The record is a 64-nucleotide RNA sequence from Nomascus leucogenys, which matches "Small nucleolar RNA SNORD77" in Rfam. The family's RNA type in Rfam is C/D-box small nucleolar RNA.
RNA sequence: AUACUAUGAUGGUUGCAUAGUUCAGCAGAUUGAAUCAUGAAGAGAUGUACUGUCUGAUGUAUCU
Numbered sequence: 001a002u003a004c005u006a007u008g009a010u011g012g013u014u015g016c017a018u019a020g021u022u023c024a025g026c027a028g029a030u031u032g033a034a035u036c037a038u039g040a041a042g043a044g045a046u047g048u049a050c051u052g053u054c055u056g057a058u059g060u061a062u063c064u
Base pairs, nucleotide, nucleotide: 001062002061003060004059006038007037008036009035010034013028014027015026016025043051044050

For this family Rfam cites "Guide RNAs with 5' caps and novel box C/D snoRNA-like domains for modification of snRNAs in metazoa" (Tycowski et al., Curr Biol, 2004). The match comes from Rfam's covariance-model search (83 bits).